[Rfam]
Notes
Shown here is a 46-nucleotide sequence from Liquorilactobacillus vini, a member of the family "PreQ1 (pre queuosine) riboswitch aptamer". This family is a bacterial riboswitch that binds to the metabolite preQ1, an intermediate in the biosynthesis of the modified nucleoside queuosine from GTP. One example of this riboswitch is located in the leader of the Bacillus subtilis ykvJKLM (queCDEF) operon which encodes four genes necessary for queuosine production. PreQ1 binding to the riboswitch aptamer is thought to induce premature transcription termination within the leader to down-regulate expression of these genes. The match comes from Rfam's covariance-model search (42 bits). The family has 43 seed sequences and 873 matches in Rfam 15.1.
RNA sequence: GUCCUGGUGGUUCGAAACCAUCCCACCAUAAAAAAACUAGGGGGAA
Numbered sequence: 001g002u003c004c005u006g007g008u009g010g011u012u013c014g015a016a017a018c019c020a021u022c023c024c025a026c027c028a029u030a031a032a033a034a035a036a037c038u039a040g041g042g043g044g045a046a
Stems, first nucleotide, its partner, number of pairs: 006027005016038001